[Rfam]
RNA sequence: UCGGCGGGCCGUGACUGGCGCGCUGGGAUGGGAUGGACCAUCGGGGAGCGGCCUGAGCAGGACAGUGCCGUGCGCCUGGGCCGUACCG
Numbered sequence: 001u002c003g004g005c006g007g008g009c010c011g012u013g014a015c016u017g018g019c020g021c022g023c024u025g026g027g028a029u030g031g032g033a034u035g036g037a038c039c040a041u042c043g044g045g046g047a048g049c050g051g052c053c054u055g056a057g058c059a060g061g062a063c064a065g066u067g068c069c070g071u072g073c074g075c076c077u078g079g080g081c082c083g084u085a086c087c088g
Stems, first nucleotide, its partner, number of pairs: 005055008015045002017076005028041004067081003
RNA: ZMP/ZTP riboswitch aptamer (pfl RNA motif)